[Rfam]
RNA: Small nucleolar RNA snoR138
RNA sequence: UUUUCCUUCGAAUAACCAGAUGUGGAAAUUUGAGACCGCAUUUGGUUCAGACAAGAGCAUAUAAUAAAUAUGUGAGGGGAAUUGUGUAGGAAUUCAUUUCUUCACCUUUCCAUUUCCUCGUGAAUCAAUCUUU
Numbered sequence: 001u002u003u004u005c006c007u008u009c010g011a012a013u014a015a016c017c018a019g020a021u022g023u024g025g026a027a028a029u030u031u032g033a034g035a036c037c038g039c040a041u042u043u044g045g046u047u048c049a050g051a052c053a054a055g056a057g058c059a060u061a062u063a064a065u066a067a068a069u070a071u072g073u074g075a076g077g078g079g080a081a082u083u084g085u086g087u088a089g090g091a092a093u094u095c096a097u098u099u100c101u102u103c104a105c106c107u108u109u110c111c112a113u114u115u116c117c118u119c120g121u122g123a124a125u126c127a128a129u130c131u132u133u
Base pairs, nucleotide, nucleotide: 003059005057007055008054014047015046016045017044018043019042020041021040023038024037025036070113071112072111075108076107077106079105088101089100090099091098092097122133123132124131